Antisense RNA which regulates isiA expression: a 178-nucleotide RNA sequence from Crocosphaera watsonii. Rfam's curators put it in the seed alignment. Taxonomically the source falls in Crocosphaera watsonii (Bacteria, Cyanophyceae, Oscillatoriophycideae, Chroococcales). The family's consensus secondary structure was predicted with PFOLD.

RNA sequence: GAUAGCCAUAGAUCACUAAGGGAUCUAAGGUGGGUUGGGUUACUAAACGAACCGCCUCUGUGGUGGAAUCGUAUAUACCGCCCCAGAACAUCGCUUUUCCUACCAAUAGUAAGGCAGCGACACCCAAGAAUAAGAGAUGAUGGCCUAAAAUAAUGCCAAGUUUUUUGGGAUCGUCCCA
Numbered sequence: 001g002a003u004a005g006c007c008a009u010a011g012a013u014c015a016c017u018a019a020g021g022g023a024u025c026u027a028a029g030g031u032g033g034g035u036u037g038g039g040u041u042a043c044u045a046a047a048c049g050a051a052c053c054g055c056c057u058c059u060g061u062g063g064u065g066g067a068a069u070c071g072u073a074u075a076u077a078c079c080g081c082c083c084c085a086g087a088a089c090a091u092c093g094c095u096u097u098u099c100c101u102a103c104c105a106a107u108a109g110u111a112a113g114g115c116a117g118c119g120a121c122a123c124c125c126a127a128g129a130a131u132a133a134g135a136g137a138u139g140a141u142g143g144c145c146u147a148a149a150a151u152a153a154u155g156c157c158a159a160g161u162u163u164u165u166u167g168g169g170a171u172c173g174u175c176c177c178a
Stems, first nucleotide, its partner, number of pairs: 136175006144169005
Dot-bracket structure: .......................................................................................................................................((((((..(((((................)))))))))))...